[Rfam]
RNA sequence: AUUCUCUAGAUAAGUGUGAGACAUUGGAUUGAUUUCACUCAAUCCAAGCCCCACAUUCAUCAAGGGGUUCAU
Numbered sequence: 001a002u003u004c005u006c007u008a009g010a011u012a013a014g015u016g017u018g019a020g021a022c023a024u025u026g027g028a029u030u031g032a033u034u035u036c037a038c039u040c041a042a043u044c045c046a047a048g049c050c051c052c053a054c055a056u057u058c059a060u061c062a063a064g065g066g067g068u069u070c071a072u
Stems, first nucleotide, its partner, number of pairs: 004067001006064002009061003013057006020050001022048001024047009
Notes
Rfam assigns this 72-nucleotide RNA sequence from Nicotiana sylvestris to the family "MIR6151 microRNA precursor family". The organism belongs to Nicotiana, within Eukaryota.